A member of the RNA family "skipping-rope RNA", 71 nucleotides long. Rfam's curators put it in the seed alignment.

RNA sequence: AGUUUCAGAGGGCGGAACAGGCAGCCGCCACCCGUUGUUAGGAGAUGUAGGAAGGUCACCCUACCUAAGCU
Numbered sequence: 001a002g003u004u005u006c007a008g009a010g011g012g013c014g015g016a017a018c019a020g021g022c023a024g025c026c027g028c029c030a031c032c033c034g035u036u037g038u039u040a041g042g043a044g045a046u047g048u049a050g051g052a053a054g055g056u057c058a059c060c061c062u063a064c065c066u067a068a069g070c071u
Stems, first nucleotide, its partner, number of pairs: 001071005007066002011029005020057003031042001047064005